[Rfam]
RNA sequence: GAUGCACACAAACCCAAAGGUCAUUAUUAUUUUGUAUAAUGCUCUUGUCAUGUGUGCAGAAAUUAAAAGCACCUUGUCGCCUUUCAUACGCUGCUGUGCCAAUGGAAGUGAAAUCAAGGUUCAACACGA
Numbered sequence: 001g002a003u004g005c006a007c008a009c010a011a012a013c014c015c016a017a018a019g020g021u022c023a024u025u026a027u028u029a030u031u032u033u034g035u036a037u038a039a040u041g042c043u044c045u046u047g048u049c050a051u052g053u054g055u056g057c058a059g060a061a062a063u064u065a066a067a068a069g070c071a072c073c074u075u076g077u078c079g080c081c082u083u084u085c086a087u088a089c090g091c092u093g094c095u096g097u098g099c100c101a102a103u104g105g106a107a108g109u110g111a112a113a114u115c116a117a118g119g120u121u122c123a124a125c126a127c128g129a
Base pairs, nucleotide, nucleotide: 003058004057005056006055007054008053009052019044020043022041023040024039025038026037027036069122071120072119073118074117075116081108082107083106084105085104086103087102090099091098

A member of the RNA family "Small nucleolar RNA SNORA68" from Megalops atlanticus, 129 nucleotides long.
About the family: U68 is a member of the H/ACA class of small nucleolar RNAs (snoRNAs) which act as guides in the the modification of uridines to pseudouridines.
By type it is an H/ACA-box small nucleolar RNA.
NCBI's taxonomy places the organism under Eukaryota, Metazoa, Craniata, Gnathostomata, Megalops.
The family has 26 seed sequences and 1,079 matches in Rfam 15.1.
The match comes from Rfam's covariance-model search (80 bits).
For this family Rfam cites "The family of box ACA small nucleolar RNAs is defined by an evolutionarily conserved secondary structure and ubiquitous sequence elements essential for RNA accumulation" (Ganot et al., Genes Dev, 1997).
The base pairs follow the family's consensus structure, which was predicted with PFOLD.